[Rfam]
RNA sequence: GCAGUCGGUCGGUCUGUCGCUGAUGCCGCAAGGCAGAAGAGGAAAGUCCGGGCAACACAGAGCAUCCUACUUCCUAACAGAAAGCUAUCUGCGAAGGUAGAGUAAUGCAGAAGAAAAAAACCGCCUUGUUCUUUCGAGAAUAAGGUAAGGGUGAGAAGGCGGGGUAAGAGCCCACCAGCCGCAUGGUGACAUGUCGGGCUGUGUAUCUUAGGAGUUGUAAGGUCAUGUAAACCGGCAUUAUGAGGGUUGCUCGCCCCACGUCGGAGGGUAGACCGCUAGAGCCUGUUGGUGACAACAGGCGUAGAUAAAUGACAGACGCCUUACCGCUAGAUAAGGAACAGAACCCGGCUUACAGACCGACUGCUUUU
Numbered sequence: 001g002c003a004g005u006c007g008g009u010c011g012g013u014c015u016g017u018c019g020c021u022g023a024u025g026c027c028g029c030a031a032g033g034c035a036g037a038a039g040a041g042g043a044a045a046g047u048c049c050g051g052g053c054a055a056c057a058c059a060g061a062g063c064a065u066c067c068u069a070c071u072u073c074c075u076a077a078c079a080g081a082a083a084g085c086u087a088u089c090u091g092c093g094a095a096g097g098u099a100g101a102g103u104a105a106u107g108c109a110g111a112a113g114a115a116a117a118a119a120a121c122c123g124c125c126u127u128g129u130u131c132u133u134u135c136g137a138g139a140a141u142a143a144g145g146u147a148a149g150g151g152u153g154a155g156a157a158g159g160c161g162g163g164g165u166a167a168g169a170g171c172c173c174a175c176c177a178g179c180c181g182c183a184u185g186g187u188g189a190c191a192u193g194u195c196g197g198g199c200u201g202u203g204u205a206u207c208u209u210a211g212g213a214g215u216u217g218u219a220a221g222g223u224c225a226u227g228u229a230a231a232c233c234g235g236c237a238u239u240a241u242g243a244g245g246g247u248u249g250c251u252c253g254c255c256c257c258a259c260g261u262c263g264g265a266g267g268g269u270a271g272a273c274c275g276c277u278a279g280a281g282c283c284u285g286u287u288g289g290u291g292a293c294a295a296c297a298g299g300c301g302u303a304g305a306u307a308a309a310u311g312a313c314a315g316a317c318g319c320c321u322u323a324c325c326g327c328u329a330g331a332u333a334a335g336g337a338a339c340a341g342a343a344c345c346c347g348g349c350u351u352a353c354a355g356a357c358c359g360a361c362u363g364c365u366u367u368u
Stems, first nucleotide, its partner, number of pairs: 001364010011353001012317007020039002024035004044351003048348005053217004060252004065213005070084003074080001085100001087098004101208002105206005121150002123146009158176002161173003178199001179197003182193004221274004232264005244256004281300008